[Rfam]
The record is a 73-nucleotide RNA sequence, which matches "L2-Alphaproteobacteria ribosomal protein leader" in Rfam. The literature on the family includes a 2020 paper in BMC Microbiol by Eckert and Weinberg, "Discovery of 20 novel ribosomal leader candidates in bacteria and archaea". Rfam's curators put it in the seed alignment. It is annotated as a cis-regulatory leader.

RNA sequence: GGGGACCUCAGGGGCCCUACACACCACAGACAGCCGGGCCCAUACCCGGCGCGAAGCAAACGGAAGACAGAAA
Numbered sequence: 001g002g003g004g005a006c007c008u009c010a011g012g013g014g015c016c017c018u019a020c021a022c023a024c025c026a027c028a029g030a031c032a033g034c035c036g037g038g039c040c041c042a043u044a045c046c047c048g049g050c051g052c053g054a055a056g057c058a059a060a061c062g063g064a065a066g067a068c069a070g071a072a073a
Stems, first nucleotide, its partner, number of pairs: 001018004006014003033050006